[Rfam]
RNA sequence: GGGAAGUGUAGGUCUGCAAAGUUCACCACAUCCUGUGGCAAAGCAGACAUGACCCGCAUCGUGCGGG
Numbered sequence: 001g002g003g004a005a006g007u008g009u010a011g012g013u014c015u016g017c018a019a020a021g022u023u024c025a026c027c028a029c030a031u032c033c034u035g036u037g038g039c040a041a042a043g044c045a046g047a048c049a050u051g052a053c054c055c056g057c058a059u060c061g062u063g064c065g066g067g
Stems, first nucleotide, its partner, number of pairs: 012048006026038004053067005
This 67-nucleotide sequence from Psychrobacillus glaciei belongs to the Rfam family "Bacillaceae-1 RNA".
It is annotated as a small RNA.
Taxonomically the source falls in Psychrobacillus (Bacteria, Bacillota, Caryophanales, Bacillaceae).